RNA: tRNA
Organism: Ardeotis kori
RNA sequence: UAGAUAGAAGCCUGUUGGUUUAGGCACCUGGCUGUUAACCAGGGGUUUAUGGGAUCGAGGCCCAUCUGUCUAG
Numbered sequence: 001u002a003g004a005u006a007g008a009a010g011c012c013u014g015u016u017g018g019u020u021u022a023g024g025c026a027c028c029u030g031g032c033u034g035u036u037a038a039c040c041a042g043g044g045g046u047u048u049a050u051g052g053g054a055u056c057g058a059g060g061c062c063c064a065u066c067u068g069u070c071u072a073g
Stems, first nucleotide, its partner, number of pairs: 001072007010025004027043005049065005